The record is a 77-nucleotide sequence from Tricholaema leucomelas, which matches "mir-190 microRNA precursor family" in Rfam. Clan: mir-50 clan. A search with the family's covariance model found it, with a score of 66 bits. Gene Ontology terms of the family: RISC complex and miRNA-mediated post-transcriptional gene silencing. The family has 76 seed sequences and 1,667 matches in Rfam 15.1.
RNA sequence: AGCUCUGUCUGAUAUGUUUGAUAUGAGGUUGUUCGAGUCCAAACCCAACUCAAUAUCAAACAUAUUCCUACAGCGCC
Numbered sequence: 001a002g003c004u005c006u007g008u009c010u011g012a013u014a015u016g017u018u019u020g021a022u023a024u025g026a027g028g029u030u031g032u033u034c035g036a037g038u039c040c041a042a043a044c045c046c047a048a049c050u051c052a053a054u055a056u057c058a059a060a061c062a063u064a065u066u067c068c069u070a071c072a073g074c075g076c077c
Base pairs, nucleotide, nucleotide: 005073006072007071008070011066012065013064014063015062016061017060018059019058020057021056022055023054024053027050028049029048030047031046